[Rfam]
This 306-nucleotide RNA sequence from Cocos nucifera belongs to the Rfam family "Plant signal recognition particle RNA". The family has 63 seed sequences and 4,988 matches in Rfam 15.1.

RNA sequence: GCCGAGCUCAUUCGCGAGAGCUUUUAACCCGAGUGGGGGCAAUGGGUGGUUUGGACGUUUGGGUAUGCCUGUGGGUUUGGAUGCAGAUGGGGCAUAUGGCUGGCUCGCCCUUUCCAAGUUGGGUAGUUAGAUGCGUGGCUUAGGCGAAAUCUUGGGUCAUGCCUCUCCUGAAGUGGAGGAAACUACAUCAGACUAGCUUCACAGAGCAGCGAAUACCUCCCUCUCUCAACGGUGGAAGGAUAAUGGGCCGCCGCACCAUGUAUCCUCUAAGGCCCAUGGGCAUACCCAUUGCGGACAAUCAUUUUU
Numbered sequence: 001g002c003c004g005a006g007c008u009c010a011u012u013c014g015c016g017a018g019a020g021c022u023u024u025u026a027a028c029c030c031g032a033g034u035g036g037g038g039g040c041a042a043u044g045g046g047u048g049g050u051u052u053g054g055a056c057g058u059u060u061g062g063g064u065a066u067g068c069c070u071g072u073g074g075g076u077u078u079g080g081a082u083g084c085a086g087a088u089g090g091g092g093c094a095u096a097u098g099g100c101u102g103g104c105u106c107g108c109c110c111u112u113u114c115c116a117a118g119u120u121g122g123g124u125a126g127u128u129a130g131a132u133g134c135g136u137g138g139c140u141u142a143g144g145c146g147a148a149a150u151c152u153u154g155g156g157u158c159a160u161g162c163c164u165c166u167c168c169u170g171a172a173g174u175g176g177a178g179g180a181a182a183c184u185a186c187a188u189c190a191g192a193c194u195a196g197c198u199u200c201a202c203a204g205a206g207c208a209g210c211g212a213a214u215a216c217c218u219c220c221c222u223c224u225c226u227c228a229a230c231g232g233u234g235g236a237a238g239g240a241u242a243a244u245g246g247g248c249c250g251c252c253g254c255a256c257c258a259u260g261u262a263u264c265c266u267c268u269a270a271g272g273c274c275c276a277u278g279g280g281c282a283u284a285c286c287c288a289u290u291g292c293g294g295a296c297a298a299u300c301a302u303u304u305u306u
Stems, first nucleotide, its partner, number of pairs: 001040003004023006011016001028037003044305003049300001051298003056293002060288001062286016079265007090256001092254001101250007109239002112237005118230006126222001129166003133162012168173001175220005184213001186211001188209001193204002